[Rfam]
RNA sequence: GCUACACUUUAGGGGUGUCUGGCGACAGACUGAGAAAUACCCUUGGAACCUGAUCCCGGUAAUGCGGGCGAAGGGAAAAGUUGCGAUGCGCUC
Numbered sequence: 001g002c003u004a005c006a007c008u009u010u011a012g013g014g015g016u017g018u019c020u021g022g023c024g025a026c027a028g029a030c031u032g033a034g035a036a037a038u039a040c041c042c043u044u045g046g047a048a049c050c051u052g053a054u055c056c057c058g059g060u061a062a063u064g065c066g067g068g069c070g071a072a073g074g075g076a077a078a079a080g081u082u083g084c085g086a087u088g089c090g091c092u093c
Base pairs, nucleotide, nucleotide: 006081007080008079009078010077011043012042013041014040016037017030018029019028020027021026049074050073051072055068056067057066058065
Rfam assigns this 93-nucleotide RNA from Marinoscillum furvescens to the family "TPP riboswitch aptamer (THI element)". About the family: Vitamin B(1) in its active form thiamin pyrophosphate (TPP) is an essential coenzyme that is synthesised by coupling of pyrimidine and thiazole moieties in bacteria. The previously detected thiamin-regulatory element, thi box was extended, resulting in a new, highly conserved RNA secondary structure, the THI element, which is widely distributed in eubacteria and also occurs in some archaea. Analysis of operon structures identified a large number of new candidate thiamin-regulated genes, mostly transporters, in various prokaryotic organisms. Pairs were carried over by alignment from the consensus structure, which is taken from published work.